Source information:
Rfam assigns this 188-nucleotide RNA from Desulfofundulus thermobenzoicus to the family "Lysine riboswitch aptamer". Gene Ontology term of the family: lysine biosynthetic process. The family's consensus secondary structure is taken from published work.
RNA sequence: AGGUGGGGUAGAGGUUGCGGACAACAAGAGUAUCCCGGUGGAGGUGCGGGUACCGUUGAAACCGGGGGAAAGGGUUGCCCGCCGAAGUCCAGCCGCCGCCCGGAGCGACUGGGCUGGGCCGACAUCGAAGAGGUGCCGGACUGUCACCGUGCGGUCAGCCCUGCCGCCGGUGGAGCGCUAUCUCACCU
Numbered sequence: 001a002g003g004u005g006g007g008g009u010a011g012a013g014g015u016u017g018c019g020g021a022c023a024a025c026a027a028g029a030g031u032a033u034c035c036c037g038g039u040g041g042a043g044g045u046g047c048g049g050g051u052a053c054c055g056u057u058g059a060a061a062c063c064g065g066g067g068g069a070a071a072g073g074g075u076u077g078c079c080c081g082c083c084g085a086a087g088u089c090c091a092g093c094c095g096c097c098g099c100c101c102g103g104a105g106c107g108a109c110u111g112g113g114c115u116g117g118g119c120c121g122a123c124a125u126c127g128a129a130g131a132g133g134u135g136c137c138g139g140a141c142u143g144u145c146a147c148c149g150u151g152c153g154g155u156c157a158g159c160c161c162u163g164c165c166g167c168c169g170g171u172g173g174a175g176c177g178c179u180a181u182c183u184c185a186c187c188u
Base pairs, nucleotide, nucleotide: 006183007182008181009180010179011178017082018081019080020079022077023076024075025074033067034066035065036064037063038062039061086115087114088113089112090111091110092109094107095106096105116142117141119139120138121137123135124134125133126132144173145172146171147170148169149168